Background:
This 30-nucleotide sequence from Oesophagostomum dentatum belongs to the Rfam family "MAT2A 3'UTR stem loop D". By type it is a cis-regulatory element.
[Rfam]
RNA sequence: UCUGAGGUCCGGCGUAGCUGGUAUCUCAGA
Numbered sequence: 001u002c003u004g005a006g007g008u009c010c011g012g013c014g015u016a017g018c019u020g021g022u023a024u025c026u027c028a029g030a
Stems, first nucleotide, its partner, number of pairs: 001030008009021005
On this family, see Parker et al., Genome Res 2011: "New families of human regulatory RNA structures identified by comparative analysis of vertebrate genomes". Taxonomically the source falls in Oesophagostomum (Eukaryota, Nematoda, Strongyloidea, Strongylidae).